RNA: L31-Actinobacteria ribosomal protein leader
RNA sequence: CCGGUCCCGGUUCACGUCCGCACCCGCGGCGACCCGGCGGCC
Numbered sequence: 001c002c003g004g005u006c007c008c009g010g011u012u013c014a015c016g017u018c019c020g021c022a023c024c025c026g027c028g029g030c031g032a033c034c035c036g037g038c039g040g041c042c
Base pairs, nucleotide, nucleotide: 003042004041005040007037008036009035010034015031016030018029019028020027021026